[Rfam]
Shown here is a 47-nucleotide RNA sequence, a member of the family "Plastid-ccsA-ndhD-2 3UTR RNA". Rfam describes the family as follows. Plastid ccsA-ndhD-2 is a non-coding RNA (ncRNA) recognised in plastids. The family's RNA type in Rfam is cis-regulatory element. On this family, see Stern and Gruissem, Cell 1987: "Control of plastid gene expression: 3' inverted repeats act as mRNA processing and stabilizing elements, but do not terminate transcription".
RNA sequence: UGCACGAACCAUUUGAAUCAAGUAGUGUAGUGAUUCAAAUGGUUCUC
Numbered sequence: 001u002g003c004a005c006g007a008a009c010c011a012u013u014u015g016a017a018u019c020a021a022g023u024a025g026u027g028u029a030g031u032g033a034u035u036c037a038a039a040u041g042g043u044u045c046u047c
Base pairs, nucleotide, nucleotide: 006045007044008043009042010041011040012039013038014037015036016035017034018033019032020031
Source information: Rfam's curators put it in the seed alignment. Rfam 15.1 lists 875 matches to the family in 517 species.